[Rfam]
Record summary:
Archaeal signal recognition particle RNA: a 305-nucleotide RNA sequence from Sulfolobales archaeon HS-7. A reference for the family is Regalia et al. (2002), "Prediction of signal recognition particle RNA genes", Nucleic Acids Res. The organism belongs to Sulfolobales, within Archaea. Its Rfam clan is "SRP clan". A search with the family's covariance model found it, with a score of 165 bits.
RNA sequence: GGGCUGGGAAGGGUGAGGGGUUCGCCUCCCCUUAUAACCGAAGGCGUAAUGCGGUCACCAGUAACCUCAUAUGUAAAGCGCUCGCCUAUCAUUAGCCUUUGUCUACUAUGAAGGCUGCCCUACAGGGCCUGAGGAUGCAGAAUACGUCCUUGGAGAAGGAUGUAUUACUGCAUUAGCUGGGGGAACCGACGAGGUCCGGAAGGGAGCAGUCGUGCCUGGACUCAGGAGCUUGUGGGUCACCGGCCUGAGGACGACAGAGGGGAAACUAAUGAUAGGUAGAGACUUUACGUAUGAGGAGCCAGCCU
Numbered sequence: 001g002g003g004c005u006g007g008g009a010a011g012g013g014u015g016a017g018g019g020g021u022u023c024g025c026c027u028c029c030c031c032u033u034a035u036a037a038c039c040g041a042a043g044g045c046g047u048a049a050u051g052c053g054g055u056c057a058c059c060a061g062u063a064a065c066c067u068c069a070u071a072u073g074u075a076a077a078g079c080g081c082u083c084g085c086c087u088a089u090c091a092u093u094a095g096c097c098u099u100u101g102u103c104u105a106c107u108a109u110g111a112a113g114g115c116u117g118c119c120c121u122a123c124a125g126g127g128c129c130u131g132a133g134g135a136u137g138c139a140g141a142a143u144a145c146g147u148c149c150u151u152g153g154a155g156a157a158g159g160a161u162g163u164a165u166u167a168c169u170g171c172a173u174u175a176g177c178u179g180g181g182g183g184a185a186c187c188g189a190c191g192a193g194g195u196c197c198g199g200a201a202g203g204g205a206g207c208a209g210u211c212g213u214g215c216c217u218g219g220a221c222u223c224a225g226g227a228g229c230u231u232g233u234g235g236g237u238c239a240c241c242g243g244c245c246u247g248a249g250g251a252c253g254a255c256a257g258a259g260g261g262g263a264a265a266c267u268a269a270u271g272a273u274a275g276g277u278a279g280a281g282a283c284u285u286u287a288c289g290u291a292u293g294a295g296g297a298g299c300c301a302g303c304c305u
Base pairs, nucleotide, nucleotide: 001305002304003303004302005301006300007299011059012058015033016032017031018030019029020028037055038054039053040052065296066295067294068293069292070291071290072289073288074287075286076285077284078283079281081279084277085276086275087274088273089272090271091270092269093268094267095266096260097259098258099257100256101255102254103253106250107249109247112246113245114244115243116242117241119236120235121234122233123232124231125230126229128226129225130224131223132222133221134174135173136172137171138170139169140168141166142165143164144163145162146161147160148159149158150157151156177219178218179217181216182215187212188211189210190209195204196203197202